[Rfam]
A member of the RNA family "U5 spliceosomal RNA" from Nelumbo nucifera, 117 nucleotides long. NCBI's taxonomy places the organism under Eukaryota, Viridiplantae, Streptophytina, Magnoliopsida, Nelumbo. The base pairs follow the family's consensus structure, which is taken from published work. The match comes from Rfam's covariance-model search (57 bits). U5 RNA is a component of both types of known spliceosome.
RNA sequence: AGCUGCGCGGUGUGCACAGAGCCAACUAUUCUUUUUCCUUUUACUAAAGAAUACCAUGUGCUCACUGCAUUCAGUGACAUACGCCAAUUAUUGACAAAAUGAUUGGUGCUUCAAGUU
Numbered sequence: 001a002g003c004u005g006c007g008c009g010g011u012g013u014g015c016a017c018a019g020a021g022c023c024a025a026c027u028a029u030u031c032u033u034u035u036u037c038c039u040u041u042u043a044c045u046a047a048a049g050a051a052u053a054c055c056a057u058g059u060g061c062u063c064a065c066u067g068c069a070u071u072c073a074g075u076g077a078c079a080u081a082c083g084c085c086a087a088u089u090a091u092u093g094a095c096a097a098a099a100u101g102a103u104u105g106g107u108g109c110u111u112c113a114a115g116u117u
Base pairs, nucleotide, nucleotide: 004076005075006074008067009066010065011064012063014061015060016059017058018057027053028052029051030050031049032048033047034046097117098116100114